Record summary:
A member of the RNA family "Small nucleolar RNA SNORA53" from Dissostichus mawsoni, 196 nucleotides long. The family's RNA type in Rfam is H/ACA-box small nucleolar RNA. A search with the family's covariance model found it, with a score of 91 bits. Rfam's curators write: The snoRNA ACA53 belongs to the H/ACA family of pseudouridylation guide snoRNAs. Gene Ontology terms of the family: nucleolus and RNA processing. The family has 28 seed sequences and 1,090 matches in Rfam 15.1.
RNA sequence: AACACGCUCCUUAGAUCCACCUCUGGAGGGGCUCUGAACGGAGCCCCUCGGCAGCUUUCUGGCUGUACAGUUGGAGGUGCUUGAGUCAUUGGCGUGUGAGAACAGUCUACCUGUCCCCCAGCCCAACUGCAGCACUGGCAGCCCUGUCCUCUACAGACAGGGAGCCCCAGUGACGCUAGCCUGGGGGACGGACACA
Numbered sequence: 001a002a003c004a005c006g007c008u009c010c011u012u013a014g015a016u017c018c019a020c021c022u023c024u025g026g027a028g029g030g031g032c033u034c035u036g037a038a039c040g041g042a043g044c045c046c047c048u049c050g051g052c053a054g055c056u057u058u059c060u061g062g063c064u065g066u067a068c069a070g071u072u073g074g075a076g077g078u079g080c081u082u083g084a085g086u087c088a089u090u091g092g093c094g095u096g097u098g099a100g101a102a103c104a105g106u107c108u109a110c111c112u113g114u115c116c117c118c119c120a121g122c123c124c125a126a127c128u129g130c131a132g133c134a135c136u137g138g139c140a141g142c143c144c145u146g147u148c149c150u151c152u153a154c155a156g157a158c159a160g161g162g163a164g165c166c167c168c169a170g171u172g173a174c175g176c177u178a179g180c181c182u183g184g185g186g187g188a189c190g191g192a193c194a195c196a
Base pairs, nucleotide, nucleotide: 002097003096004095005094006093007092008091010085011084012083013082014081018079019078020077021076022075023074024073025072026049027048028047029046030045031044032043033042034041035040051066052065053064054063055062056061111191112190113189114188115187118184120182121181123179133172134171135170136169137168138167141165142164144162146158147157148156